[Rfam]
Shown here is a 108-nucleotide sequence from Clostridium sulfidigenes, a member of the family "PyrR binding site". Pairs were carried over by alignment from the consensus structure, which is taken from published work. It scores 72 bits against the family's covariance model.
Nucleotides: 108
Stems, first nucleotide, its partner, number of pairs: 003037006013030006042069003046065001049062002072103001074101001076099010
Number, partner (000 for none) and nucleotide at each position: 001000u002000a003037u004036u005035u006034c007033u008032u009000u010000a011000a012000a013030u014029c015028a016027g017026u018025c019000c020000a021000g022000a023000g024000a025018g026017g027016c028015u029014g030013g031000c032008a033007a034006g035005a036004a037003g038000a039000u040000a041000g042069a043068u044067a045000u046065a047000a048000u049062u050061a051000c052000a053000g054000g055000g056000c057000a058000c059000a060000c061050u062049a063000u064000a065046u066000u067044u068043a069042u070000g071000u072103a073000u074101a075000u076099a077098a078097c079096u080095u081094c082093u083092u084091g085090c086000g087000a088000a089000a090085g091084u092083a093082a094081g095080a096079a097078g098077u099076u100000u101074u102000u103072u104000u105000a106000u107000u108000u